The family of this 87-nucleotide sequence from Zhenhengia yiwuensis is "c-di-GMP-I riboswitch aptamer". Taxonomically the source falls in Zhenhengia (Bacteria, Clostridia, Lachnospirales, Lachnospiraceae).
RNA sequence: AAAUUAAAUGGGCAAACCUUGGGAAACCUUGGGACGCAAAGCUAUAGGGGUUAAGGUUUUUUUAAACUAUACCAGCCAGUUGCCAAA
Numbered sequence: 001a002a003a004u005u006a007a008a009u010g011g012g013c014a015a016a017c018c019u020u021g022g023g024a025a026a027c028c029u030u031g032g033g034a035c036g037c038a039a040a041g042c043u044a045u046a047g048g049g050g051u052u053a054a055g056g057u058u059u060u061u062u063u064a065a066a067c068u069a070u071a072c073c074a075g076c077c078a079g080u081u082g083c084c085a086a087a
Stems, first nucleotide, its partner, number of pairs: 012037002017032002021028002040081004047077002049073003056067004